This 75-nucleotide sequence from Alligator sinensis belongs to the Rfam family "Mammalian CPEB3 ribozyme".
[Rfam]
RNA sequence: GUUGAAAAUUUGAGGCUACAGCAGAUGUGCUAACAGUGUAGCCAUGUCAGAUUCUGAAAAUCUGAGACUUCUGCU
Dot-bracket structure: .............[[[[..((((((.(((.......)))]]]]....((((((.....)))))).....))))))